[Rfam]
RNA sequence: UUUUUUAGACUCUUAAUUUCUUUUUCUAGGAUGAACUCUUAGGGUGUGUUUGAGGAGAAGGGGAUUGAGGAGAUUGGGGAG
Numbered sequence: 001u002u003u004u005u006u007a008g009a010c011u012c013u014u015a016a017u018u019u020c021u022u023u024u025u026c027u028a029g030g031a032u033g034a035a036c037u038c039u040u041a042g043g044g045u046g047u048g049u050u051u052g053a054g055g056a057g058a059a060g061g062g063g064a065u066u067g068a069g070g071a072g073a074u075u076g077g078g079g080a081g
Base pairs, nucleotide, nucleotide: 001081002080003079004078005077006076007075008074010072011071012070013068014067016065017064020061021060022059023058024057025056026055027054029051030050031049032048033047035045036044037043